Shown here is a 36-nucleotide RNA sequence, a member of the family "DUF805b RNA". The family's RNA type in Rfam is cis-regulatory element.

[Rfam]
RNA sequence: UAGGCGGAAUCCGAAAAGCCUAAGAAAGAGUAGGAG
Numbered sequence: 001u002a003g004g005c006g007g008a009a010u011c012c013g014a015a016a017a018g019c020c021u022a023a024g025a026a027a028g029a030g031u032a033g034g035a036g
Stems, first nucleotide, its partner, number of pairs: 002021004010035003